[Rfam]
RNA sequence: CUGAUGGACGCGUUCGGGUCAAUUGCGGAUUGCAACACCCGAUCUCCCUCCCCGUUCCCGAUGGCUGGGAACUGGCCGAGGGGGAGCGCGUCUCCGUCAG
Numbered sequence: 001c002u003g004a005u006g007g008a009c010g011c012g013u014u015c016g017g018g019u020c021a022a023u024u025g026c027g028g029a030u031u032g033c034a035a036c037a038c039c040c041g042a043u044c045u046c047c048c049u050c051c052c053c054g055u056u057c058c059c060g061a062u063g064g065c066u067g068g069g070a071a072c073u074g075g076c077c078g079a080g081g082g083g084g085a086g087c088g089c090g091u092c093u094c095c096g097u098c099a100g
Stems, first nucleotide, its partner, number of pairs: 001100005008091006015041004023035005043085008052075003
Dot-bracket structure: (((((..((((((.((((....(((((...)))))..)))).((((((((.(((..................)))..))))))))))))))....)))))
Source information
The record is a 100-nucleotide RNA, which matches "L4-Archaeoglobi ribosomal protein leades" in Rfam. By type it is a cis-regulatory leader. The sequence is in the family's curated seed alignment.